[Rfam]
Description
Shown here is a 95-nucleotide RNA from Colocasia esculenta, a member of the family "Small nucleolar RNA Z266". It is annotated as a C/D-box small nucleolar RNA. A reference for the family is Chen et al. (2003), "The high diversity of snoRNAs in plants: identification and comparative study of 120 snoRNA genes from Oryza sativa", Nucleic Acids Res. The family's consensus secondary structure was predicted with PFOLD. The family has 11 seed sequences and 719 matches in Rfam 15.1.

RNA sequence: GAUUGGCUGGAGUGAUGAAUCAAUUAGAUGUGUGAAGUGAAUCUUCUCUCAUGAACUGAACUUUGGAGGCAUACAUGUAUUCUGACCGGCCACAU
Number, nucleotide and partner (000 for none) at each position: 001g000002a095003u094004u092005g091006g090007c089008u088009g087010g086011a000012g000013u000014g000015a000016u000017g000018a000019a000020u000021c000022a000023a000024u000025u000026a000027g000028a000029u000030g000031u000032g000033u000034g000035a000036a000037g000038u000039g000040a000041a000042u000043c000044u000045u000046c000047u000048c000049u000050c000051a000052u000053g000054a000055a000056c000057u000058g000059a000060a000061c000062u000063u000064u000065g000066g000067a000068g000069g000070c000071a000072u000073a000074c000075a000076u000077g000078u000079a000080u000081u000082c000083u000084g000085a000086c010087c009088g008089g007090c006091c005092a004093c000094a003095u002